This 86-nucleotide sequence from Domibacillus epiphyticus belongs to the Rfam family "skipping-rope RNA". By type it is a small RNA. A search with the family's covariance model found it, with a score of 46 bits.
RNA sequence: GAUUUUUGAGGCGGGAUAGGUACCCUGCGCACUGUCUAUUGUUUAGGCAGUUACCAGAGAUUAGGAUUGCCGCUCCUGCUAAAAUC
Numbered sequence: 001g002a003u004u005u006u007u008g009a010g011g012c013g014g015g016a017u018a019g020g021u022a023c024c025c026u027g028c029g030c031a032c033u034g035u036c037u038a039u040u041g042u043u044u045a046g047g048c049a050g051u052u053a054c055c056a057g058a059g060a061u062u063a064g065g066a067u068u069g070c071c072g073c074u075c076c077u078g079c080u081a082a083a084a085u086c
Stems, first nucleotide, its partner, number of pairs: 001086006008079001011028005019071004030057001031051008062078005